[Rfam]
Nucleotides: 110
Base pairs, nucleotide, nucleotide: 006107007106009104010103011102013100014099015098016097017096018095019094020093021092022091023090024089025088028085030083031082032081
Number, partner (000 for none) and nucleotide at each position: 001000a002000u003000c004000a005000a006107a007106g008000a009104c010103a011102u012000a013100a014099u015098u016097g017096a018095g019094u020093g021092c022091a023090g024089c025088g026000c027000c028085g029000a030083u031082g032081a033000a034000u035000u036000c037000c038000u039000c040000a041000a042000a043000c044000c045000u046000u047000u048000g049000g050000u051000g052000c053000g054000a055000u056000g057000g058000a059000u060000c061000g062000c063000c064000c065000a066000a067000c068000a069000g070000g071000a072000u073000g074000c075000a076000a077000a078000g079000u080000u081032u082031c083030a084000u085028c086000a087000a088025c089024g090023c091022u092021g093020c094019a095018c096017u097016c098015a099014a100013u101000g102011a103010u104009g105000c106007u107006u108000u109000u110000g

Source information: A member of the RNA family "MIR397 microRNA precursor family" from Cocos nucifera, 110 nucleotides long. Its family is annotated with RISC complex and miRNA-mediated post-transcriptional gene silencing in the Gene Ontology. Rfam 15.1 lists 496 matches to the family in 218 species. The family's consensus secondary structure was predicted with WAR. The match comes from Rfam's covariance-model search (63 bits). NCBI's taxonomy places the organism under Eukaryota, Viridiplantae, Streptophyta, Arecoideae, Cocos.